[Rfam]
RNA sequence: GAUGCUGGGCCUGCUCGCGCCAGAUCCAGCUGCCGUACCUGUGACGUGGAGGCACAGAGGAAGUGGCUAUUUCUAUGCUCAGCGCUCAAAAUAGUGAGCACUAAGAAUGGUUUAUAGCCUACCACGC
Number, nucleotide and partner (000 for none) at each position: 001g000002a000003u054004g053005c052006u051007g000008g047009g000010c000011c000012u000013g000014c000015u000016c000017g000018c000019g000020c000021c041022a040023g039024a000025u000026c000027c000028a000029g000030c000031u000032g000033c000034c000035g000036u000037a000038c000039c023040u022041g021042u000043g000044a000045c000046g000047u008048g000049g000050a000051g006052g005053c004054a003055c000056a000057g000058a000059g000060g000061a000062a000063g000064u000065g119066g118067c117068u000069a000070u000071u000072u000073c110074u109075a108076u000077g000078c105079u104080c000081a000082g000083c000084g099085c098086u097087c096088a095089a000090a000091a000092u000093a000094g000095u088096g087097a086098g085099c084100a000101c000102u000103a000104a079105g078106a000107a000108u075109g074110g073111u000112u000113u000114a000115u000116a000117g067118c066119c065120u000121a000122c000123c000124a000125c000126g000127c000
RNA: Small nucleolar RNA SNORA43
Organism: Callorhinus ursinus